[Rfam]
RNA sequence: CUGCAGUUACGGGGACAUGGUCCCAAAGACGAUUGCAGGGAAGAUCUUCGGCUCCAUCUGCUCUCUGAGCGGGGUGUUGGUAAUAGCCCUGCCUGUUCCCGUCAUCGUCUCCAAC
Numbered sequence: 001c002u003g004c005a006g007u008u009a010c011g012g013g014g015a016c017a018u019g020g021u022c023c024c025a026a027a028g029a030c031g032a033u034u035g036c037a038g039g040g041a042a043g044a045u046c047u048u049c050g051g052c053u054c055c056a057u058c059u060g061c062u063c064u065c066u067g068a069g070c071g072g073g074g075u076g077u078u079g080g081u082a083a084u085a086g087c088c089c090u091g092c093c094u095g096u097u098c099c100c101g102u103c104a105u106c107g108u109c110u111c112c113a114a115c
Base pairs, nucleotide, nucleotide: 002114006111009108010107011106012105014103015102016101019098020097022095038078039077041075050064051063
Rfam assigns this 115-nucleotide RNA sequence from Synaphobranchus kaupii to the family "Potassium channel RNA editing signal". It scores 82 bits against the family's covariance model. From the family's description: This family represents a group of sequences related to the human potassium channel Kv1.1 hairpin element which directs the efficient modification of an adenosine to inosine by an adenosine deaminase acting on RNA (ADAR). A reference for the family is Bhalla et al. (2004), "Control of human potassium channel inactivation by editing of a small mRNA hairpin", Nat Struct Mol Biol. The family's consensus secondary structure is taken from published work.